[Rfam]
RNA sequence: UUUGCCUCAAACACAAAGGUGUCAUCCCAGUGCUUGACACUGGGAUCCAGUAAAAUUGAUUGUGAACAAGCACACUAUACAACAUUUUCAAUGAAAUUACAAAAAAGCUGGAUUCCAGUGUCAAGCACUGGAAUGACACCAUUUGCUGUGCAAUUU
Numbered sequence: 001u002u003u004g005c006c007u008c009a010a011a012c013a014c015a016a017a018g019g020u021g022u023c024a025u026c027c028c029a030g031u032g033c034u035u036g037a038c039a040c041u042g043g044g045a046u047c048c049a050g051u052a053a054a055a056u057u058g059a060u061u062g063u064g065a066a067c068a069a070g071c072a073c074a075c076u077a078u079a080c081a082a083c084a085u086u087u088u089c090a091a092u093g094a095a096a097u098u099a100c101a102a103a104a105a106a107g108c109u110g111g112a113u114u115c116c117a118g119u120g121u122c123a124a125g126c127a128c129u130g131g132a133a134u135g136a137c138a139c140c141a142u143u144u145g146c147u148g149u150g151c152a153a154u155u156u
Base pairs, nucleotide, nucleotide: 012150013149014148015147020138021137022136023135024134025133027131028130029129030128031127032126033125034124035123036122037121038120039119040118041117042116043115044114045113046112047111048110049109050108
The family of this 156-nucleotide RNA sequence is "Wolbachia sRNA 46".
It is one of the family's seed sequences.